[Rfam]
RNA: L2-Alphaproteobacteria ribosomal protein leader
Organism: Pelagovum pacificum
RNA sequence: GGGGACCUUUGGGGCCCUUAAACAGCCGGGUCGCUUGCGAUCCGCAAAGCAACGGAAAGACAGUAA
Numbered sequence: 001g002g003g004g005a006c007c008u009u010u011g012g013g014g015c016c017c018u019u020a021a022a023c024a025g026c027c028g029g030g031u032c033g034c035u036u037g038c039g040a041u042c043c044g045c046a047a048a049g050c051a052a053c054g055g056a057a058a059g060a061c062a063g064u065a066a
Base pairs, nucleotide, nucleotide: 001018002017003016004015006014007013008012028043029042030041031040032039033038